[Rfam]
RNA sequence: CGUUCAGAGAUUGCCUCUGUCGUUACUUACUCUAUGUAUGUGAUGGGAAUGCAGUUGCUGA
Numbered sequence: 001c002g003u004u005c006a007g008a009g010a011u012u013g014c015c016u017c018u019g020u021c022g023u024u025a026c027u028u029a030c031u032c033u034a035u036g037u038a039u040g041u042g043a044u045g046g047g048a049a050u051g052c053a054g055u056u057g058c059u060g061a
Stems, first nucleotide, its partner, number of pairs: 009056006020046004027040001029037001